[Rfam]
RNA: Small nucleolar RNA SNORA48
Organism: Mus spicilegus
RNA sequence: GGCCCCUAGCAAUGGGCAAAGAGAUACCUGGUUGGUGGUGUUGUUCUUAUAUCAGUCAGGAGCAGAGUAGAUGGCAGCUCUUUGUUCAUCCUAGCUUGAUGCCUGGCUUGGUGGCAAAGCUACUUAAUGCCUAGGACUCAUAA
Dot-bracket structure: .((.(((.....(((...(((.((((((........))))))...)))...)))...))).))....................((((..........(.(...(.(..((.(......).))..).).).)..))))......